[Rfam]
RNA: Plastid-psbN 5UTR RNA
RNA sequence: UGCGACCCCCAUAAAUGAAGUACUCCCCCAACCCGGGGUGACUUUCCCAUGUUCCGAGUUC
Numbered sequence: 001u002g003c004g005a006c007c008c009c010c011a012u013a014a015a016u017g018a019a020g021u022a023c024u025c026c027c028c029c030a031a032c033c034c035g036g037g038g039u040g041a042c043u044u045u046c047c048c049a050u051g052u053u054c055c056g057a058g059u060u061c
Stems, first nucleotide, its partner, number of pairs: 017045005024038004